This 62-nucleotide RNA from Propithecus coquereli belongs to the Rfam family "U7 small nuclear RNA". Pairs were carried over by alignment from the consensus structure, which was predicted with PFOLD.
RNA sequence: AAGUAGUAGAGCUCUUUUAGAAUUUGUCUAGGAUGUUUUCUGGUUUUCACCAGAAGACACCC
Numbered sequence: 001a002a003g004u005a006g007u008a009g010a011g012c013u014c015u016u017u018u019a020g021a022a023u024u025u026g027u028c029u030a031g032g033a034u035g036u037u038u039u040c041u042g043g044u045u046u047u048c049a050c051c052a053g054a055a056g057a058c059a060c061c062c
Base pairs, nucleotide, nucleotide: 034059035058036057037056038055039054040053041052042051043050044049
Taxonomically the source falls in Propithecus (Eukaryota, Gnathostomata, Teleostomi, Tetrapoda).